[Rfam]
RNA: Small nucleolar RNA snoR2/U65
Nucleotides: 156
Base pairs, nucleotide, nucleotide: 002062003061004060005059006058007057008056012050013049014048015047016046017045020042021041023036024035025034081148082147083146084145085144095137101132102131106127108126109125
Number, partner (000 for none) and nucleotide at each position: 001000u002062g003061u004060c005059c006058g007057a008056u009000c010000c011000c012050u013049g014048u015047u016046g017045a018000u019000u020042g021041u022000a023036g024035u025034c026000a027000u028000u029000c030000a031000g032000u033000u034025g035024g036023c037000a038000a039000u040000g041021a042020c043000c044000a045017u046016c047015a048014a049013u050012g051000c052000u053000a054000u055000g056008a057007u058006u059005g060004g061003a062002c063000c064000u065000a066000a067000a068000a069000u070000a071000u072000u073000u074000c075000a076000a077000u078000a079000u080000u081148u082147c083146a084145c085144a086000u087000u088000c089000a090000u091000g092000a093000u094000a095137g096000g097000a098000a099000u100000c101132u102131g103000u104000u105000u106127a107000c108126u109125g110000a111000u112000u113000u114000a115000u116000c117000a118000a119000u120000c121000c122000u123000u124000u125109c126108a127106u128000u129000u130000a131102c132101a133000a134000a135000g136000a137095c138000g139000u140000u141000u142000u143000g144085u145084g146083u147082g148081a149000u150000c151000a152000c153000a154000u155000u156000u